[Rfam]
RNA sequence: GUGGGCUACGGUGAUAUGGUGCCGAAGACGUAUGCUGGCAUGCUUGUGGGUGGCCUCUGUGCUCUAACCGGUGUAUUAACCAUUGCACUACCAGUGCCUGUCAUUGUAGCCAAU
Numbered sequence: 001g002u003g004g005g006c007u008a009c010g011g012u013g014a015u016a017u018g019g020u021g022c023c024g025a026a027g028a029c030g031u032a033u034g035c036u037g038g039c040a041u042g043c044u045u046g047u048g049g050g051u052g053g054c055c056u057c058u059g060u061g062c063u064c065u066a067a068c069c070g071g072u073g074u075a076u077u078a079a080c081c082a083u084u085g086c087a088c089u090a091c092c093a094g095u096g097c098c099u100g101u102c103a104u105u106g107u108a109g110c111c112a113a114u
Base pairs, nucleotide, nucleotide: 001114002113004111005110007108008107009106010105011104013102014101015100016099018097021095022094037077038076040074049063050062051061
The family of this 114-nucleotide RNA from Didymodactylos carnosus is "Potassium channel RNA editing signal". The family has 85 seed sequences and 14,095 matches in Rfam 15.1. This family represents a group of sequences related to the human potassium channel Kv1.1 hairpin element which directs the efficient modification of an adenosine to inosine by an adenosine deaminase acting on RNA (ADAR). The ADAR modification causes an isoleucine/valine recoding event which lies in the ion-conducting pore of the potassium channel. It is thought that this editing event targets the process of fast inactivation and allows a more rapid recovery from inactivation at negative potentials.